[Rfam]
Nucleotides: 101
Base pairs, nucleotide, nucleotide: 001097002096003095004094005093006092007091008090010089011088014085016080017079018078019077020076022075028064029063030062032060033059
Number, partner (000 for none) and nucleotide at each position: 001097g002096g003095c004094u005093g006092g007091u008090c009000c010089g011088a012000a013000u014085g015000c016080a017079g018078u019077g020076g021000u022075a023000u024000u025000u026000a027000c028064a029063a030062u031000u032060a033059a034000u035000u036000g037000a038000u039000c040000a041000c042000a043000a044000c045000c046000a047000g048000u049000u050000a051000c052000a053000g054000a055000u056000u057000u058000c059033u060032u061000u062030g063029u064028u065000c066000c067000u068000u069000c070000c071000u072000u073000a074000c075022u076020c077019c078018a079017c080016u081000g082000c083000u084000u085014c086000a087000c088011u089010u090008g091007a092006u093005u094004a095003g096002c097001c098000u099000u100000u101000a